RNA sequence: AGAGCAUUGAGAGGAGCCUUCCUUAGUACGAGAGGACCGGGAAGGACGCACCUCUGGUGUACCAGUUAUCGUGCCAACGGUAAACGCUGGGUAGCCAUGUGCGGAGCGGAUAACCGCUGAAAGCAUCUAAGUGGGAAGCCCACCUCAAGAUGAGUGCUCUCACUGGGUUAACCAGGUAAGGUCACAGGAAGAACACCUGUUCUUAGGCGUUAGGUGGAAGCGCAGCAAUGUGUGCAGCCGAGACGUACUAACCGACCGAGG
Numbered sequence: 001a002g003a004g005c006a007u008u009g010a011g012a013g014g015a016g017c018c019u020u021c022c023u024u025a026g027u028a029c030g031a032g033a034g035g036a037c038c039g040g041g042a043a044g045g046a047c048g049c050a051c052c053u054c055u056g057g058u059g060u061a062c063c064a065g066u067u068a069u070c071g072u073g074c075c076a077a078c079g080g081u082a083a084a085c086g087c088u089g090g091g092u093a094g095c096c097a098u099g100u101g102c103g104g105a106g107c108g109g110a111u112a113a114c115c116g117c118u119g120a121a122a123g124c125a126u127c128u129a130a131g132u133g134g135g136a137a138g139c140c141c142a143c144c145u146c147a148a149g150a151u152g153a154g155u156g157c158u159c160u161c162a163c164u165g166g167g168u169u170a171a172c173c174a175g176g177u178a179a180g181g182u183c184a185c186a187g188g189a190a191g192a193a194c195a196c197c198u199g200u201u202c203u204u205a206g207g208c209g210u211u212a213g214g215u216g217g218a219a220g221c222g223c224a225g226c227a228a229u230g231u232g233u234g235c236a237g238c239c240g241a242g243a244c245g246u247a248c249u250a251a252c253c254g255a256c257c258g259a260g261g
Stems, first nucleotide, its partner, number of pairs: 001160008011146004017045007047103005055097003062090005067082006108140002114134005163175003177259001180257004184200005204250003207246005213239002220233005